[Rfam]
RNA sequence: CUUCAUGAGAUGCCAUCGCCAAGCUCCGACUUGAUGGCACGCCAACCCCACGCUCGUGGGUGGCUCGGAUGACGAAGCGGCCGGCACCAACCGGUGACGACAAGAGCGCCUC
Numbered sequence: 001c002u003u004c005a006u007g008a009g010a011u012g013c014c015a016u017c018g019c020c021a022a023g024c025u026c027c028g029a030c031u032u033g034a035u036g037g038c039a040c041g042c043c044a045a046c047c048c049c050a051c052g053c054u055c056g057u058g059g060g061u062g063g064c065u066c067g068g069a070u071g072a073c074g075a076a077g078c079g080g081c082c083g084g085c086a087c088c089a090a091c092c093g094g095u096g097a098c099g100a101c102a103a104g105a106g107c108g109c110c111u112c
Base pairs, nucleotide, nucleotide: 001077002076003075004074009040012038013037014036015035016034017033022031023030041064042063043062046060047059048058050057051056080101082099083098085096086095087094088093
Dot-bracket structure: ((((....(..((((((....((......)).)))))).)(((..(((.((....))))).))).........))))..(.((.((((....)))).)).)...........
About this RNA: The family of this 112-nucleotide sequence from Mycobacterium fragae is "SAM (S-adenosyl methionine) riboswitch aptamer". From the family's description: SAM-IV is a mRNA element that regulates gene expression via direct sensing of S-adenosylmethionine (SAM or AdoMet). A search with the family's covariance model found it, with a score of 75 bits.